[Rfam]
Nucleotides: 177
Base pairs, nucleotide, nucleotide: 007171008170009169010168011167016083017082018081019080021078022077023076024075033067034066035065036064037063038062087116088115089114090113092111093110094109095108096107097106117143118142119141120140121139122138123137124136125135126134127133145162146161147160148159149158150157
Number, partner (000 for none) and nucleotide at each position: 001000a002000g003000u004000g005000a006000u007171g008170a009169u010168a011167g012000a013000g014000g015000u016083g017082c018081g019080a020000g021078u022077u023076u024075c025000a026000u027000u028000a029000g030000u031000a032000a033067g034066g035065a036064c037063u038062u039000g040000g041000a042000g043000a044000a045000g046000u047000u048000u049000g050000a051000g052000c053000u054000u055000c056000a057000u058000g059000g060000a061000a062038a063037a064036g065035u066034c067033c068000g069000g070000a071000a072000a073000g074000g075024g076023g077022a078021a079000g080019u081018c082017g083016c084000c085000g086000a087116a088115g089114c090113g091000a092111a093110a094109c095108a096107g097106g098000g099000c100000u101000c102000a103000c104000a105000a106097c107096c108095u109094g110093u111092u112000a113090c114089g115088c116087u117143g118142g119141u120140u121139c122138u123137g124136c125135a126134u127133u128000g129000a130000a131000u132000a133127a134126g135125u136124g137123c138122a139121g140120g141119a142118u143117u144000g145162u146161c147160a148159a149158g150157a151000u152000c153000u154000u155000a156000u157150u158149c159148u160147u161146g162145g163000a164000g165000a166000g167011c168010u169009a170008u171007c172000u173000c174000a175000c176000u177000g
Lysine riboswitch aptamer: a 177-nucleotide sequence from Peribacillus deserti.
From the family's description: Riboswitches are metabolite binding domains within certain messenger RNAs that serve as precision sensors for their corresponding targets. Allosteric rearrangement of mRNA structure is mediated by ligand binding, and this results in modulation of gene expression. This family includes riboswitches that sense lysine in a number of genes involved in lysine metabolism, including lysC.
The base pairs follow the family's consensus structure, which is taken from published work.
NCBI's taxonomy places the organism under Bacteria, Bacillati, Bacilli, Caryophanales, Peribacillus.